[Rfam]
RNA sequence: GCUUGUUCUCAGGGCAGGGUGGAAAUCCCGACCGGCGGUAUCCCCUCUUAAGGGAGGGGGAGCCCGCGAGCGCCCGGGGGCGGUGACGCCCACGGGGUCAGCAGACCCGGUGAAACGCCGGGGCCGACGGUUACAGUCCGGAUGAAAGAGGAUGAGC
Numbered sequence: 001g002c003u004u005g006u007u008c009u010c011a012g013g014g015c016a017g018g019g020u021g022g023a024a025a026u027c028c029c030g031a032c033c034g035g036c037g038g039u040a041u042c043c044c045c046u047c048u049u050a051a052g053g054g055a056g057g058g059g060g061a062g063c064c065c066g067c068g069a070g071c072g073c074c075c076g077g078g079g080g081c082g083g084u085g086a087c088g089c090c091c092a093c094g095g096g097g098u099c100a101g102c103a104g105a106c107c108c109g110g111u112g113a114a115a116c117g118c119c120g121g122g123g124c125c126g127a128c129g130g131u132u133a134c135a136g137u138c139c140g141g142a143u144g145a146a147a148g149a150g151g152a153u154g155a156g157c
Stems, first nucleotide, its partner, number of pairs: 003155008017029003031137002033126002035067004062124002070102002106122005128140003
RNA: FMN riboswitch aptamer (RFN element)